[Rfam]
RNA sequence: CCCUUAUCUUUUAAAAGUUUCAAGUUGGUCCCUUAUCUUUAUUUUAGGUUUCAAGUUGGUCCCUUAUCUUUUUUUAGGUUUCAAGUUGGUUCCUUCCGUCAAUUUUUUACUGUUACCAUUAAAUUUGGACAUGUGUCAUAUGUCCAAGUGUGCGACGUGUCCAAAUUAUUUUGCCACAUGUCCAAAUUUGAUGGAAAUAGUUAAAAAAAUUGACGGAAGGGACCAACUUGAAACCUAAAAUAAAGAUAAGGGACCAACUUGAAACUUUUAAAAGAUAAUGGA
Number, nucleotide and partner (000 for none) at each position: 001c000002c280003c000004u278005u277006a276007u275008c274009u000010u000011u000012u000013a000014a000015a000016a000017g000018u000019u000020u000021c000022a000023a259024g258025u257026u000027g255028g254029u253030c000031c251032c250033u249034u248035a247036u246037c245038u244039u243040u242041a241042u240043u239044u000045u237046a236047g235048g234049u233050u232051u231052c230053a229054a228055g227056u226057u225058g224059g223060u222061c221062c220063c000064u000065u000066a000067u000068c000069u000070u000071u000072u000073u000074u000075u000076a000077g000078g000079u000080u000081u000082c000083a000084a000085g000086u000087u000088g000089g000090u000091u000092c000093c000094u000095u000096c000097c000098g000099u000100c000101a000102a000103u000104u000105u000106u000107u000108u000109a000110c000111u000112g000113u000114u000115a000116c000117c000118a000119u000120u000121a000122a000123a000124u000125u000126u000127g000128g000129a000130c000131a000132u000133g000134u000135g000136u000137c000138a000139u000140a000141u000142g000143u000144c000145c000146a000147a000148g000149u000150g000151u000152g000153c000154g000155a000156c000157g000158u000159g000160u000161c000162c000163a000164a000165a000166u000167u000168a000169u000170u000171u000172u000173g000174c000175c000176a000177c000178a000179u000180g000181u000182c000183c000184a000185a000186a000187u000188u000189u000190g000191a000192u000193g000194g000195a000196a000197a000198u000199a000200g000201u000202u000203a000204a000205a000206a000207a000208a000209a000210u000211u000212g000213a000214c000215g000216g000217a000218a000219g000220g062221g061222a060223c059224c058225a057226a056227c055228u054229u053230g052231a051232a050233a049234c048235c047236u046237a045238a000239a043240a042241u041242a040243a039244a038245g037246a036247u035248a034249a033250g032251g031252g000253a029254c028255c027256a000257a025258c024259u023260u000261g000262a000263a000264a000265c000266u000267u000268u000269u000270a000271a000272a000273a000274g008275a007276u006277a005278a004279u000280g002281g000282a000
A member of the RNA family "MIR2655 microRNA precursor family" from Trifolium subterraneum, 282 nucleotides long. The organism belongs to Trifolium, within Eukaryota. A search with the family's covariance model found it, with a score of 125 bits. Gene Ontology terms of the family: miRNA-mediated post-transcriptional gene silencing and RISC complex.